[Rfam]
The record is a 100-nucleotide sequence from Paenibacillus apis, which matches "Guanidine-I riboswitch aptamer" in Rfam. About the family: This family represents a conserved RNA structure found upstream of the ykkC and yxkD genes in Bacillus subtilis and related genes in other bacteria. The match comes from Rfam's covariance-model search (84 bits).

RNA sequence: UUUGGAGUUUACUAGGGUUCCGUCUGGCAACAGAGUCUGGUCCGAGAGUAAACGGUCCCGCACGCCGGGGACUACACGGAAGGAUAAAAACCUGGGAGAU
Numbered sequence: 001u002u003u004g005g006a007g008u009u010u011a012c013u014a015g016g017g018u019u020c021c022g023u024c025u026g027g028c029a030a031c032a033g034a035g036u037c038u039g040g041u042c043c044g045a046g047a048g049u050a051a052a053c054g055g056u057c058c059c060g061c062a063c064g065c066c067g068g069g070g071a072c073u074a075c076a077c078g079g080a081a082g083g084a085u086a087a088a089a090a091c092c093u094g095g096g097a098g099a100u
Base pairs, nucleotide, nucleotide: 007053008052009051010050011049012048015043016042020040021039022037023034024033025032026031054073055072056071057070058069059068075095077098081093082092083091